RNA sequence: UUGGCUUAAACUCAAUGAGUAAGGAAACUAACGUCCUACCUGACAAGUAGGGCUGCCUAUUGGGUCGAGUGAUCCAUGGGUUUCAAUUUAUGACGGAGGUGGAAUGGCCGUCAAUUAGAAAACCCACUACUUUAGGGUGACUAAUAGGGGGCCGGUCCCCGCC
Numbered sequence: 001u002u003g004g005c006u007u008a009a010a011c012u013c014a015a016u017g018a019g020u021a022a023g024g025a026a027a028c029u030a031a032c033g034u035c036c037u038a039c040c041u042g043a044c045a046a047g048u049a050g051g052g053c054u055g056c057c058u059a060u061u062g063g064g065u066c067g068a069g070u071g072a073u074c075c076a077u078g079g080g081u082u083u084c085a086a087u088u089u090a091u092g093a094c095g096g097a098g099g100u101g102g103a104a105u106g107g108c109c110g111u112c113a114a115u116u117a118g119a120a121a122a123c124c125c126a127c128u129a130c131u132u133u134a135g136g137g138u139g140a141c142u143a144a145u146a147g148g149g150g151g152c153c154g155g156u157c158c159c160c161g162c163c
Stems, first nucleotide, its partner, number of pairs: 005023004033053007055081005098163005106157005112147001115144004122138004